[Rfam]
RNA sequence: UUCUCUUGUCCUUCAUUCCACCGGAGUCUGUCUCAUAUCUAAUCAGAUUUCAGUGGAGUGAAGCUUAAGAGGCA
Numbered sequence: 001u002u003c004u005c006u007u008g009u010c011c012u013u014c015a016u017u018c019c020a021c022c023g024g025a026g027u028c029u030g031u032c033u034c035a036u037a038u039c040u041a042a043u044c045a046g047a048u049u050u051c052a053g054u055g056g057a058g059u060g061a062a063g064c065u066u067a068a069g070a071g072g073c074a
Base pairs, nucleotide, nucleotide: 011063012062013061014060015059016058019055020054021053023051024050025049026048028046029045030044
Shown here is a 74-nucleotide RNA sequence from Sarcophilus harrisii, a member of the family "mir-205 microRNA precursor family". A reference for the family is Lim et al. (2003), "Vertebrate microRNA genes", Science. The sequence is in the family's curated seed alignment.